This 70-nucleotide RNA from Esox lucius belongs to the Rfam family "mir-338 microRNA precursor family". A search with the family's covariance model found it, with a score of 82 bits. On this family, see Meiri et al., Nucleic Acids Res 2010: "Discovery of microRNAs and other small RNAs in solid tumors".

RNA sequence: CCUGAAACAACAUCCUGAUGCUGCCUGAGUGUCUGUAGAUAGACUCCAGCAUCAGUGAUUUUGUUGCAGG
Numbered sequence: 001c002c003u004g005a006a007a008c009a010a011c012a013u014c015c016u017g018a019u020g021c022u023g024c025c026u027g028a029g030u031g032u033c034u035g036u037a038g039a040u041a042g043a044c045u046c047c048a049g050c051a052u053c054a055g056u057g058a059u060u061u062u063g064u065u066g067c068a069g070g
Base pairs, nucleotide, nucleotide: 006065007064008063009062010061012059013058014057015055016054017053018052019051020050021049022048023047